This 121-nucleotide RNA sequence from Neobacillus mesonae belongs to the Rfam family "ylbH leader".
[Rfam]
RNA sequence: AUAAAAAAAACCCCGUAGAAAUCUACAGGGUCCUUCCAAAUCCCUUAUAAAAGGAUAGAAGGCAAAGGGAGAGGAGAAACCGGAGGAAGAACUUAUGGGGAAACGUAAGUCUUCUCCGCGG
Number, nucleotide and partner (000 for none) at each position: 001a000002u000003a000004a000005a000006a000007a000008a000009a000010a000011c030012c029013c028014c000015g026016u025017a024018g023019a000020a000021a000022u000023c018024u017025a016026c015027a000028g013029g012030g011031u069032c068033c067034u066035u065036c000037c000038a000039a000040a056041u055042c054043c053044c000045u000046u000047a000048u000049a000050a000051a000052a000053g043054g042055a041056u040057a000058g000059a000060a000061g000062g000063c000064a000065a035066a034067g033068g032069g031070a000071g000072a000073g000074g000075a000076g000077a000078a000079a000080c000081c118082g117083g116084a115085g000086g114087a113088a112089g111090a000091a110092c109093u108094u107095a106096u000097g000098g000099g000100g000101a000102a000103a000104c000105g000106u095107a094108a093109g092110u091111c089112u088113u087114c086115u084116c083117c082118g081119c000120g000121g000
Its family is annotated with regulation of gene expression in the Gene Ontology.
Rfam describes the family as follows. This family is a putative regulatory RNA structure that is found upstream of the ylbH gene in B. subtilis and related low GC Gram-positive bacteria.
Pairs were carried over by alignment from the consensus structure.